[Rfam]
This 28-nucleotide RNA belongs to the Rfam family "L19-Flavobacteria ribosomal protein leader". For this family Rfam cites "Discovery of 20 novel ribosomal leader candidates in bacteria and archaea" (Eckert and Weinberg, BMC Microbiol, 2020).

RNA sequence: CAACCUCUGGCGAAAAUCGCGAACGUUG
Numbered sequence: 001c002a003a004c005c006u007c008u009g010g011c012g013a014a015a016a017u018c019g020c021g022a023a024c025g026u027u028g
Stems, first nucleotide, its partner, number of pairs: 001028004008023001010020004